[Rfam]
RNA sequence: ACGGUCUGGGGACGGCUCCUGCAUGGCUGGACCCGCCCAGCAGUGGGUGCAGUCCCACCCUGACCUAGAGCAAAUGCUGGGGUGCUCCCCUGGGCUUGAAACUUGCAGUAACAGGUGUGAACAUUCUAGUAAGUAGUUUGAUGAUCAUGUAUGCUACUGCAAACAGGG
Numbered sequence: 001a002c003g004g005u006c007u008g009g010g011g012a013c014g015g016c017u018c019c020u021g022c023a024u025g026g027c028u029g030g031a032c033c034c035g036c037c038c039a040g041c042a043g044u045g046g047g048u049g050c051a052g053u054c055c056c057a058c059c060c061u062g063a064c065c066u067a068g069a070g071c072a073a074a075u076g077c078u079g080g081g082g083u084g085c086u087c088c089c090c091u092g093g094g095c096u097u098g099a100a101a102c103u104u105g106c107a108g109u110a111a112c113a114g115g116u117g118u119g120a121a122c123a124u125u126c127u128a129g130u131a132a133g134u135a136g137u138u139u140g141a142u143g144a145u146c147a148u149g150u151a152u153g154c155u156a157c158u159g160c161a162a163a164c165a166g167g168g
Stems, first nucleotide, its partner, number of pairs: 003065004008060003020057002025054005031048003077093002079090004103162008112153002118147003122143004128138003

Small Cajal body specific RNA 16: a 168-nucleotide sequence from Echinops telfairi. The family's RNA type in Rfam is small Cajal body RNA. Rfam links the family to the GO terms RNA processing and nucleolus. Pairs were carried over by alignment from the consensus structure, which was predicted with RNAfold. Rfam's curators put it in the seed alignment. About the family: scaRNAs are a specific class of small nuclear RNAs which localise to the Cajal bodies and guide the modification of RNA polymerase II transcribed spliceosomal RNAs U1, U2, U4, U5 and U12.